RNA: Manganese Mn2+ riboswitch aptamer (yybP-ykoY)
Organism: Roseateles aquatilis
Nucleotides: 172
Stems, first nucleotide, its partner, number of pairs: 021040003041086010058076007092172002
Number, partner (000 for none) and nucleotide at each position: 001000c002000c003000u004000c005000u006000c007000u008000u009000g010000g011000g012000g013000a014000g015000u016000a017000g018000c019000c020000g021040g022039c023038u024000u025000c026000c027000a028000u029000u030000c031000g032000c033000a034000u035000g036000g037000a038023a039022g040021c041086g042085c043084c044083u045082g046081c047080g048079u049078c050077a051000a052000c053000a054000c055000a056000c057000u058076u059075g060074a061073g062072c063071c064070u065000u066000c067000u068000c069000c070064g071063g072062g073061c074060u075059c076058a077050u078049g079048g080047c081046g082045c083044a084043g085042g086041u087000a088000g089000c090000c091000a092172g093171u094000u095000c096000u097000g098000g099000u100000u101000g102000g103000c104000g105000a106000g107000a108000c109000c110000a111000a112000c113000g114000a115000c116000g117000u118000g119000c120000c121000a122000g123000c124000g125000c126000g127000a128000c129000u130000u131000c132000g133000g134000g135000u136000c137000g138000g139000g140000c141000a142000g143000u144000g145000g146000u147000g148000g149000c150000a151000u152000g153000u154000c155000g156000u157000u158000g159000c160000g161000a162000c163000u164000c165000c166000g167000c168000c169000c170000g171093a172092c